RNA: mir-160 microRNA precursor family
RNA sequence: GCGCACCACUCCCACGGUGCGCCAUUAGUAAAAAAAGUUUUUUUAAUUUUUUUUCAAAACUACUAAUGGCGCACCGUGGGAGUGGUGCGC
Numbered sequence: 001g002c003g004c005a006c007c008a009c010u011c012c013c014a015c016g017g018u019g020c021g022c023c024a025u026u027a028g029u030a031a032a033a034a035a036a037g038u039u040u041u042u043u044u045a046a047u048u049u050u051u052u053u054u055c056a057a058a059a060c061u062a063c064u065a066a067u068g069g070c071g072c073a074c075c076g077u078g079g080g081a082g083u084g085g086u087g088c089g090c
Base pairs, nucleotide, nucleotide: 001090002089003088004087005086006085008083009082010081011080012079013078014077016075017074018073019072020071021070022069023068024067027064028063029062